A member of the RNA family "Bacteriophage Diversity-Generating Retroelement RNA", 132 nucleotides long. The family's RNA type in Rfam is small RNA. A reference for the family is Handa et al. (2025), "RNA control of reverse transcription in a diversity-generating retroelement", Nature.
[Rfam]
RNA sequence: GCUUGGCACUUACCUUGUGGCGGUGUCAGCCGAUCACUAUUUAGGGUGGUCAGCUUGGUUAUCCUGCUUCGGCGAACACACAUCUGGGUUUGGUAGAACGUUGAGUAGCCUAGUGCAAAAAACGGAGCCAGC
Numbered sequence: 001g002c003u004u005g006g007c008a009c010u011u012a013c014c015u016u017g018u019g020g021c022g023g024u025g026u027c028a029g030c031c032g033a034u035c036a037c038u039a040u041u042u043a044g045g046g047u048g049g050u051c052a053g054c055u056u057g058g059u060u061a062u063c064c065u066g067c068u069u070c071g072g073c074g075a076a077c078a079c080a081c082a083u084c085u086g087g088g089u090u091u092g093g094u095a096g097a098a099c100g101u102u103g104a105g106u107a108g109c110c111u112a113g114u115g116c117a118a119a120a121a122a123c124g125g126a127g128c129c130a131g132c
Stems, first nucleotide, its partner, number of pairs: 001030002004028007013020002065074003088132001090131005099124004108116002
The base pairs follow the family's consensus structure, which is taken from published work.